RNA sequence: UAUUAAAAAAACUCAGCCAUUUCUACAGUUAAAAACUAACGUGGUUGACGAAAUAACUAAACAGUUAUGCCACGUGUACUUCAUGCUAAUGUACAGUGACCAAUAUUUAAGAAUAGAAGUUGAUGAAAUUUUUAAUA
Number, nucleotide and partner (000 for none) at each position: 001u000002a136003u135004u134005a133006a132007a131008a130009a000010a129011a000012c000013u126014c125015a124016g000017c122018c000019a120020u119021u118022u117023c116024u115025a114026c000027a000028g000029u110030u109031a108032a107033a106034a000035a000036c000037u000038a000039a000040c000041g000042u000043g000044g000045u000046u000047g000048a000049c000050g000051a000052a000053a000054u000055a000056a000057c000058u000059a000060a000061a000062c000063a000064g000065u000066u000067a000068u000069g000070c000071c000072a000073c000074g000075u000076g000077u000078a000079c000080u000081u000082c000083a000084u000085g000086c000087u000088a000089a000090u000091g000092u000093a000094c000095a000096g000097u000098g000099a000100c000101c000102a000103a000104u000105a000106u033107u032108u031109a030110a029111g000112a000113a000114u025115a024116g023117a022118a021119g020120u019121u000122g017123a000124u015125g014126a013127a000128a000129u010130u008131u007132u006133u005134a004135a003136u002137a000